[Rfam]
RNA sequence: CGACCCCCCGCGGGAGAGUCCGGACCAGCACCGACCCGGACGCCGAAGGAGCAAAUCUCCCCGCCAAACUCUCAGGCCGCACGAACCGCGAGGGAAAG
Numbered sequence: 001c002g003a004c005c006c007c008c009c010g011c012g013g014g015a016g017a018g019u020c021c022g023g024a025c026c027a028g029c030a031c032c033g034a035c036c037c038g039g040a041c042g043c044c045g046a047a048g049g050a051g052c053a054a055a056u057c058u059c060c061c062c063g064c065c066a067a068a069c070u071c072u073c074a075g076g077c078c079g080c081a082c083g084a085a086c087c088g089c090g091a092g093g094g095a096a097a098g
Stems, first nucleotide, its partner, number of pairs: 006093002009090005019040004042077003045073002049071003056063001
Shown here is a 98-nucleotide RNA from Nakamurella panacisegetis, a member of the family "Glycine riboswitch aptamer".